RNA sequence: AAGGCAAGCUGGGAAGCCAGUGGCUUCCCGUGUAUGAUUGAACCCGCUCGCCGCCUCGAUUUACUGAGUGCGGCCUGAUUUCGGGUUCAUUUUUUG
Numbered sequence: 001a002a003g004g005c006a007a008g009c010u011g012g013g014a015a016g017c018c019a020g021u022g023g024c025u026u027c028c029c030g031u032g033u034a035u036g037a038u039u040g041a042a043c044c045c046g047c048u049c050g051c052c053g054c055c056u057c058g059a060u061u062u063a064c065u066g067a068g069u070g071c072g073g074c075c076u077g078a079u080u081u082c083g084g085g086u087u088c089a090u091u092u093u094u095u096g
Stems, first nucleotide, its partner, number of pairs: 010030009039089007

The family of this 96-nucleotide sequence from Atlantibacter hermannii is "sroE RNA". The family's RNA type in Rfam is small RNA. On this family, see Vogel et al., Nucleic Acids Res 2003: "RNomics in Escherichia coli detects new sRNA species and indicates parallel transcriptional output in bacteria". From the family's description: This family consists of a number of bacterial sroE RNA genes of around 90 bases in length. sroE is found in several Enterobacterial species but its function is unknown. Pairs were carried over by alignment from the consensus structure, which was predicted with PFOLD.